[Rfam]
RNA sequence: CAGUCAUUGGACAAAGUGAAUGGGUCAUAUGGGCUUGCCUAAGUUCCGACCCAGGAAAGUCCCCGGGCCACUAUCCGCAGAGAUGCGGCCUCGGUAACGAGAGAAUCAUACGGUAGAGAGGUCCUAAAAGCUGAGACGCGUGUGUGGAGCUUCUGUGGUCUCUCCGCCGAUGAUAUCAUGGCCGUUCGUUUCACGACAGUUAUUCACUUGGUCCUCGGACUAACUGAACGGGGCUUAUGUUCCAAUGACA
Numbered sequence: 001c002a003g004u005c006a007u008u009g010g011a012c013a014a015a016g017u018g019a020a021u022g023g024g025u026c027a028u029a030u031g032g033g034c035u036u037g038c039c040u041a042a043g044u045u046c047c048g049a050c051c052c053a054g055g056a057a058a059g060u061c062c063c064c065g066g067g068c069c070a071c072u073a074u075c076c077g078c079a080g081a082g083a084u085g086c087g088g089c090c091u092c093g094g095u096a097a098c099g100a101g102a103g104a105a106u107c108a109u110a111c112g113g114u115a116g117a118g119a120g121g122u123c124c125u126a127a128a129a130g131c132u133g134a135g136a137c138g139c140g141u142g143u144g145u146g147g148a149g150c151u152u153c154u155g156u157g158g159u160c161u162c163u164c165c166g167c168c169g170a171u172g173a174u175a176u177c178a179u180g181g182c183c184g185u186u187c188g189u190u191u192c193a194c195g196a197c198a199g200u201u202a203u204u205c206a207c208u209u210g211g212u213c214c215u216c217g218g219a220c221u222a223a224c225u226g227a228a229c230g231g232g233g234c235u236u237a238u239g240u241u242c243c244a245a246u247g248a249c250a
Stems, first nucleotide, its partner, number of pairs: 003249009014209006021053006031046006057236003061233004076087004090101004105174003111169004116164005128152004138145002211220003
The family of this 250-nucleotide RNA sequence from Arabidopsis lyrata is "RNase MRP".
By type it is a ribozyme.
Its family is annotated with rRNA processing, ribonuclease MRP complex and ribonuclease MRP activity in the Gene Ontology.
Taxonomically the source falls in Arabidopsis lyrata (Eukaryota, Gunneridae, rosids, Arabidopsis).
Rfam describes the family as follows. RNase MRP is an enzymatically active ribonucleoprotein with two distinct roles in eukaryotes. In mitochondria it plays a direct role in the initiation of mitochondrial DNA replication. In the nucleus it is involved in precursor rRNA processing, where it cleaves the internal transcribed spacer 1 between 18S and 5.8S rRNAs. Despite distinct functions, RNase MRP has been shown to be evolutionarily related to RNase P. Like eukaryotic RNase P, RNase MRP is not catalytically active without associated protein subunits.